TPP riboswitch aptamer (THI element): a 100-nucleotide sequence from Terribacillus saccharophilus. A search with the family's covariance model found it, with a score of 68 bits.

[Rfam]
Nucleotides: 100
Base pairs, nucleotide, nucleotide: 006088007087008086009085010084011052012051013050014049017027018026019025020024034045035044036043037042058081059080060079061078062075063074064073065072
Number, partner (000 for none) and nucleotide at each position: 001000a002000a003000a004000g005000c006088c007087u008086g009085c010084a011052g012051g013050g014049g015000g016000a017027g018026c019025c020024a021000u022000u023000u024020u025019g026018g027017c028000u029000g030000a031000g032000a033000u034045g035044g036043a037042c038000g039000u040000a041000u042037g043036u044035c045034c046000a047000g048000a049014c050013c051012c052011u053000u054000u055000g056000a057000a058081c059080c060079u061078g062075u063074g064073a065072g066000u067000u068000a069000g070000c071000a072065c073064u074063c075062g076000c077000g078061u079060a080059g081058g082000g083000a084010u085009g086008u087007a088006g089000c090000u091000u092000c093000u094000u095000u096000g097000a098000u099000g100000g